[Rfam]
Shown here is an 82-nucleotide RNA from Flavobacterium psychrophilum, a member of the family "Flavo-1 RNA". By type it is a small RNA. The source organism's lineage runs through Bacteria, Pseudomonadati, Bacteroidota, Flavobacteriaceae and Flavobacterium psychrophilum. Rfam's curators put it in the seed alignment.

RNA sequence: UUUUAGCCCAGAUAGCAGUGAAAAUCCUUUUGCUUUUUUUCUUUAGAAAAGCAAAAGAUUGUAACGUAUAGCUGGAUUAGCU
Numbered sequence: 001u002u003u004u005a006g007c008c009c010a011g012a013u014a015g016c017a018g019u020g021a022a023a024a025u026c027c028u029u030u031u032g033c034u035u036u037u038u039u040u041c042u043u044u045a046g047a048a049a050a051g052c053a054a055a056a057g058a059u060u061g062u063a064a065c066g067u068a069u070a071g072c073u074g075g076a077u078u079a080g081c082u
Stems, first nucleotide, its partner, number of pairs: 009074003013070002018065002023060004029055011